The family of this 195-nucleotide sequence from Kosakonia cowanii is "Yersinia sRNA 276". The source organism's lineage runs through Bacteria, Pseudomonadati, Enterobacterales, Enterobacteriaceae and Kosakonia cowanii. The family's consensus secondary structure was predicted with RNAfold. A search with the family's covariance model found it, with a score of 174 bits.
RNA sequence: CACCGACAUCAGUGAUUCGUUCUGCGAACCCUGGCCGACGGCGAGAUAGGAGCACAUGCCCAGCUCGCGCAUCUGCUGUUCGCCAAUCACGCGGGUGGUGACGUUUUUGCUGUAGGAGUCCGCCAGCUGGCGCGCGUGGGAGGCGAGAUAGGCCGGGUUACAGAUAUUUGGCGGCAUAUUGCCAAGAUCUUUCGC
Numbered sequence: 001c002a003c004c005g006a007c008a009u010c011a012g013u014g015a016u017u018c019g020u021u022c023u024g025c026g027a028a029c030c031c032u033g034g035c036c037g038a039c040g041g042c043g044a045g046a047u048a049g050g051a052g053c054a055c056a057u058g059c060c061c062a063g064c065u066c067g068c069g070c071a072u073c074u075g076c077u078g079u080u081c082g083c084c085a086a087u088c089a090c091g092c093g094g095g096u097g098g099u100g101a102c103g104u105u106u107u108u109g110c111u112g113u114a115g116g117a118g119u120c121c122g123c124c125a126g127c128u129g130g131c132g133c134g135c136g137u138g139g140g141a142g143g144c145g146a147g148a149u150a151g152g153c154c155g156g157g158u159u160a161c162a163g164a165u166a167u168u169u170g171g172c173g174g175c176a177u178a179u180u181g182c183c184a185a186g187a188u189c190u191u192u193c194g195c
Base pairs, nucleotide, nucleotide: 005189006188012032014030016028017027018026019025020024034042035041050059062077063076064075078135079134081132082131083130084129085128087126091123092122093121094120095119096118099112100111102109103108137162138161140159141158144155145154167186168185169184170183171182172181
By type it is an antisense RNA.